The record is a 120-nucleotide RNA sequence from Dioscorea zingiberensis, which matches "MIR319 microRNA precursor family" in Rfam.
Rfam 15.1 lists 168 matches to the family in 79 species.
The source organism's lineage runs through Eukaryota, Euphyllophyta, Spermatophyta, Dioscoreales and Dioscorea.
Its family is annotated with RISC complex and miRNA-mediated post-transcriptional gene silencing in the Gene Ontology.
RNA sequence: GAGAAAUGGGAGUUUCUUUCAGGCCAAAACAAUAUACUUACAUACAUCAUGUUCUUCUCCGGAAUCAGCAGAUUUGAUUUUGUUUUUAUUGUUUUGGACUGAAGGGAGCUCCUAAUUCUC
Numbered sequence: 001g002a003g004a005a006a007u008g009g010g011a012g013u014u015u016c017u018u019u020c021a022g023g024c025c026a027a028a029a030c031a032a033u034a035u036a037c038u039u040a041c042a043u044a045c046a047u048c049a050u051g052u053u054c055u056u057c058u059c060c061g062g063a064a065u066c067a068g069c070a071g072a073u074u075u076g077a078u079u080u081u082g083u084u085u086u087u088a089u090u091g092u093u094u095u096g097g098a099c100u101g102a103a104g105g106g107a108g109c110u111c112c113u114a115a116u117u118c119u120c
Base pairs, nucleotide, nucleotide: 007114008113009112010111011110012109013108014107015106016105017104018103021100022099024097025096026095027094028093029092030091031090032089033088034087